[Rfam]
Rfam assigns this 130-nucleotide RNA from Zizania palustris to the family "Small nucleolar RNA snoR74". Rfam 15.1 lists 1,404 matches to the family in 223 species. On this family, see Marker et al., Curr Biol 2002: "Experimental RNomics: identification of 140 candidates for small non-messenger RNAs in the plant Arabidopsis thaliana". It is annotated as an H/ACA-box small nucleolar RNA.
RNA sequence: AAAAAAGCAGGAUGUGCUUCUCUAUAUAAGUGAUAUCCUCGUAAACUUUAGGUAUAUUGUAGUCAUUGUUAUUGGGUGAACCGAUGGACACUGAUUGAUGUCAAUUGGUUCAGUAAACGAUGACACAUUU
Numbered sequence: 001a002a003a004a005a006a007g008c009a010g011g012a013u014g015u016g017c018u019u020c021u022c023u024a025u026a027u028a029a030g031u032g033a034u035a036u037c038c039u040c041g042u043a044a045a046c047u048u049u050a051g052g053u054a055u056a057u058u059g060u061a062g063u064c065a066u067u068g069u070u071a072u073u074g075g076g077u078g079a080a081c082c083g084a085u086g087g088a089c090a091c092u093g094a095u096u097g098a099u100g101u102c103a104a105u106u107g108g109u110u111c112a113g114u115a116a117a118c119g120a121u122g123a124c125a126c127a128u129u130u
Stems, first nucleotide, its partner, number of pairs: 005048003011037002014034002062124009077112007